[Rfam]
Fluoride riboswitch aptamer (crcB RNA motif): a 73-nucleotide RNA sequence from Clostridium sp. CAG:265. Rfam 15.1 lists 2,293 matches to the family in 1,982 species. Rfam links the family to the GO terms response to fluoride and positive regulation of gene expression.

RNA sequence: AUUAACGUAGGGAAUGAAGUUCUCCCUUGAUUAAUAUCAAAACUGCGUAAUAGCUGAUGACUUCUACAACUUU
Numbered sequence: 001a002u003u004a005a006c007g008u009a010g011g012g013a014a015u016g017a018a019g020u021u022c023u024c025c026c027u028u029g030a031u032u033a034a035u036a037u038c039a040a041a042a043c044u045g046c047g048u049a050a051u052a053g054c055u056g057a058u059g060a061c062u063u064c065u066a067c068a069a070c071u072u073u
Stems, first nucleotide, its partner, number of pairs: 010026004016064006045054002